[Rfam]
RNA: Small nucleolar RNA R38
Organism: Scleropages formosus
RNA sequence: AUGAGCCAAUGAUUACAACUUGUUAUCCCUGUCUGAAUGUGACUGUGGACACUUGGUACACUGAGGCUUGU
Numbered sequence: 001a002u003g004a005g006c007c008a009a010u011g012a013u014u015a016c017a018a019c020u021u022g023u024u025a026u027c028c029c030u031g032u033c034u035g036a037a038u039g040u041g042a043c044u045g046u047g048g049a050c051a052c053u054u055g056g057u058a059c060a061c062u063g064a065g066g067c068u069u070g071u
Stems, first nucleotide, its partner, number of pairs: 001071007